[Rfam]
RNA sequence: GCAGUGUGCUAGAUGAUCGCUUGCCGGGGAGAGCCUGGCAAGAGGAAAGUCCGGGCAGCAUAGAACGGGACAGUCGCUAACGGCGACCGGGGGUGACCCUAGGGAAAGUGCCACAGAAACGAUACCGCCUCGUCAAAGAGUGUUCGCCAGGUGCAAGCUCGGUGGAUUACCGAGAGGUAAGGGUGAAAUGAGCGAGGUAAGAGCUCGCAGCACUAUAUGGUGACAUGUAGUGGAGGUAAACCCUGUCCGCUGCAAGGAGAACUACAGACAAUAGGUUGUUCGCCGUUUGUAGUCCACAAGAUCCGCUCGACUGUGUAGGCAACUGCAUGGCUAGAUAGAUGAUCGUCCUCGACAGAACCCGGCUUAUAGGCAGGCUGCCCAA
Number, nucleotide and partner (000 for none) at each position: 001g378002c377003a376004g375005u374006g000007u372008g371009c370010u369011a367012g347013a346014u345015g344016a343017u342018c341019g000020c042021u041022u040023g039024c038025c037026g036027g035028g034029g000030a000031g000032a000033g000034c028035c027036u026037g025038g024039c023040a022041a021042g020043a000044g000045g000046a000047a365048a364049g363050u000051c362052c361053g360054g359055g358056c252057a251058g250059c249060a000061u000062a000063g283064a000065a000066c000067g000068g248069g247070a246071c245072a244073g087074u086075c085076g084077c083078u000079a000080a000081c000082g000083g077084c076085g075086a074087c073088c102089g100090g099091g098092g097093g000094u000095g000096a000097c092098c091099c090100u089101a000102g088103g243104g242105a000106a000107a000108g241109u240110g237111c236112c235113a000114c000115a000116g000117a000118a000119a000120c000121g000122a000123u000124a000125c182126c181127g178128c177129c176130u175131c174132g000133u172134c000135a000136a000137a000138g000139a000140g000141u000142g000143u000144u000145c000146g000147c000148c000149a000150g000151g000152u000153g000154c000155a000156a000157g000158c000159u000160c000161g000162g000163u000164g000165g000166a000167u000168u000169a000170c000171c000172g133173a000174g131175a130176g129177g128178u127179a000180a000181g126182g125183g000184u000185g000186a000187a000188a000189u000190g000191a000192g208193c207194g206195a205196g204197g000198u000199a000200a000201g000202a000203g000204c196205u195206c194207g193208c192209a000210g000211c233212a231213c230214u229215a228216u227217a226218u225219g224220g000221u000222g000223a000224c219225a218226u217227g216228u215229a214230g213231u212232g000233g211234a000235g112236g111237u110238a000239a000240a109241c108242c104243c103244u072245g071246u070247c069248c068249g059250c058251u057252g056253c000254a000255a000256g304257g303258a302259g000260a000261a000262c000263u000264a000265c000266a000267g294268a293269c292270a000271a290272u000273a000274g288275g287276u000277u285278g284279u000280u000281c000282g000283c063284c278285g277286u000287u275288u274289g000290u271291a000292g269293u268294c267295c000296a000297c000298a000299a000300g000301a000302u258303c257304c256305g000306c000307u000308c000309g000310a000311c330312u329313g328314u327315g326316u325317a324318g323319g000320c000321a000322a000323c318324u317325g316326c315327a314328u313329g312330g311331c000332u000333a000334g000335a000336u000337a000338g000339a000340u000341g018342a017343u016344c015345g014346u013347c012348c000349u000350c000351g000352a000353c000354a000355g000356a000357a000358c055359c054360c053361g052362g051363c049364u048365u047366a000367u011368a000369g010370g009371c008372a007373g000374g005375c004376u003377g002378c001379c000380c000381a000382a000
A member of the RNA family "Bacterial RNase P class A" from Candidatus Mycosynbacter amalyticus, 382 nucleotides long. By type it is a ribozyme.